The record is a 141-nucleotide RNA from Drosophila gunungcola, which matches "Small nucleolar RNA psi28S-1192" in Rfam. psi28S-1192 is a member of the H/ACA class of snoRNA. This family is responsible for guiding the modification of uridine 1192 to pseudouridine in Drosophila 28S rRNA. The family's RNA type in Rfam is H/ACA-box small nucleolar RNA. Its family is annotated with nucleolus and RNA processing in the Gene Ontology. Rfam 15.1 lists 81 matches to the family in 36 species.
RNA sequence: AAUUAGUCCAAUCUAAUUCUACAUAAUGGUUUAACUAUGUAGUCUCGCGUUUGGACCAGAUUAAUCUCCAAAUCUCUUAUUAUCCUUGUGCUAGUGGCCAUUCAACUGUCCUAUGCACACGAGAAACGUAAAAGAACAUAG
Numbered sequence: 001a002a003u004u005a006g007u008c009c010a011a012u013c014u015a016a017u018u019c020u021a022c023a024u025a026a027u028g029g030u031u032u033a034a035c036u037a038u039g040u041a042g043u044c045u046c047g048c049g050u051u052u053g054g055a056c057c058a059g060a061u062u063a064a065u066c067u068c069c070a071a072a073u074c075u076c077u078u079a080u081u082a083u084c085c086u087u088g089u090g091c092u093a094g095u096g097g098c099c100a101u102u103c104a105a106c107u108g109u110c111c112u113a114u115g116c117a118c119a120c121g122a123g124a125a126a127c128g129u130a131a132a133a134g135a136a137c138a139u140a141g
Stems, first nucleotide, its partner, number of pairs: 006056005019042007027033002073135003077131004085123006